Record summary:
This 112-nucleotide RNA from Aquimarina muelleri belongs to the Rfam family "SAM riboswitch aptamer (S box leader)".
RNA sequence: AAGUUAUUAAGAAAGGUGGAGGGAAUAGACCCUGUGAAACCUUAGCAACCCUUUAAUUUAUUUAAAGAAGGUGCUAAAUUCUAUCCUAUUGAUUAAUAGGAGAAGAUAACUC
Numbered sequence: 001a002a003g004u005u006a007u008u009a010a011g012a013a014a015g016g017u018g019g020a021g022g023g024a025a026u027a028g029a030c031c032c033u034g035u036g037a038a039a040c041c042u043u044a045g046c047a048a049c050c051c052u053u054u055a056a057u058u059u060a061u062u063u064a065a066a067g068a069a070g071g072u073g074c075u076a077a078a079u080u081c082u083a084u085c086c087u088a089u090u091g092a093u094u095a096a097u098a099g100g101a102g103a104a105g106a107u108a109a110c111u112c
Base pairs, nucleotide, nucleotide: 002111003110004109005108006107007106008105013043014042015041016040017039021032022031023030026083027082028081029080044075045074046073047072049071050070051067052066053065054064079104084101085100086099087098088097089096
Overview:
NCBI's taxonomy places the organism under Bacteria, Bacteroidota, Flavobacteriales, Flavobacteriaceae, Aquimarina.